[Rfam]
RNA sequence: CGAGUUAGCCAGACAAUCGCUGCUUGAUUCACUUCGGUGUUUUCAAGGGGAGGAAAGUCCGGGCUCCAAAGAGCAGGGUGCCAGAUAACGUCUGGGCGGUGUAAUGCCGACGACAAGUGCAGCAGAGAGAAGACCGCCGAUGACUUCUUCGGAAGAACAGGUAAGGCUGAAAGGGUGCGGUAAGAGCGCACCGGGCGACUAGUAAUAGUUCGUUGCAGGGUAAACUCCACCCGGAGCAAGACCAAAUAGGGUUUCAUAUGGCGUGGCUCGCGUUGAAACCGGGUAGGUUGCUUGAGCCUUAGAGUGAUUUAAGGCCUAGACGAAUGAUUGUCACUUUUCCUAGGAAGAGUACAGAACCCGGCUUAUCGGCUAACUCACAUA
Numbered sequence: 001c002g003a004g005u006u007a008g009c010c011a012g013a014c015a016a017u018c019g020c021u022g023c024u025u026g027a028u029u030c031a032c033u034u035c036g037g038u039g040u041u042u043u044c045a046a047g048g049g050g051a052g053g054a055a056a057g058u059c060c061g062g063g064c065u066c067c068a069a070a071g072a073g074c075a076g077g078g079u080g081c082c083a084g085a086u087a088a089c090g091u092c093u094g095g096g097c098g099g100u101g102u103a104a105u106g107c108c109g110a111c112g113a114c115a116a117g118u119g120c121a122g123c124a125g126a127g128a129g130a131a132g133a134c135c136g137c138c139g140a141u142g143a144c145u146u147c148u149u150c151g152g153a154a155g156a157a158c159a160g161g162u163a164a165g166g167c168u169g170a171a172a173g174g175g176u177g178c179g180g181u182a183a184g185a186g187c188g189c190a191c192c193g194g195g196c197g198a199c200u201a202g203u204a205a206u207a208g209u210u211c212g213u214u215g216c217a218g219g220g221u222a223a224a225c226u227c228c229a230c231c232c233g234g235a236g237c238a239a240g241a242c243c244a245a246a247u248a249g250g251g252u253u254u255c256a257u258a259u260g261g262c263g264u265g266g267c268u269c270g271c272g273u274u275g276a277a278a279c280c281g282g283g284u285a286g287g288u289u290g291c292u293u294g295a296g297c298c299u300u301a302g303a304g305u306g307a308u309u310u311a312a313g314g315c316c317u318a319g320a321c322g323a324a325u326g327a328u329u330g331u332c333a334c335u336u337u338u339c340c341u342a343g344g345a346a347g348a349g350u351a352c353a354g355a356a357c358c359c360g361g362c363u364u365a366u367c368g369g370c371u372a373a374c375u376c377a378c379a380u381a
Stems, first nucleotide, its partner, number of pairs: 002376009011366001012332007020050002023047005055364003059361005064236004071269004076232005081095005096111001097109004112227002117225002119221002134166002136162003144155004174192006193216001194214005199208003240289004250280006260274005296315008
This 381-nucleotide RNA sequence from Thalassotalea algicola belongs to the Rfam family "Bacterial RNase P class A". Rfam classes the family as a ribozyme. A search with the family's covariance model found it, with a score of 312 bits.